The family of this 110-nucleotide RNA sequence from Microbacterium azadirachtae is "TPP riboswitch aptamer (THI element)". A search with the family's covariance model found it, with a score of 61 bits.
RNA sequence: GCGGAUCACCACGGGAGUCCGGCGAGCCGGGCUGAGAGGGAGCGAAUCGCGCUUCGACCGUCGAACCUGAUCCGGAUCAUGCCGGCGCAGGGAGGAGCAACAGUCAUGCA
Numbered sequence: 001g002c003g004g005a006u007c008a009c010c011a012c013g014g015g016a017g018u019c020c021g022g023c024g025a026g027c028c029g030g031g032c033u034g035a036g037a038g039g040g041a042g043c044g045a046a047u048c049g050c051g052c053u054u055c056g057a058c059c060g061u062c063g064a065a066c067c068u069g070a071u072c073c074g075g076a077u078c079a080u081g082c083c084g085g086c087g088c089a090g091g092g093a094g095g096a097g098c099a100a101c102a103g104u105c106a107u108g109c110a
Stems, first nucleotide, its partner, number of pairs: 007097001009095002011061004017032005039055005066091004072085004

NCBI's taxonomy places the organism under Bacteria, Bacillati, Actinomycetes, Micrococcales, Microbacterium.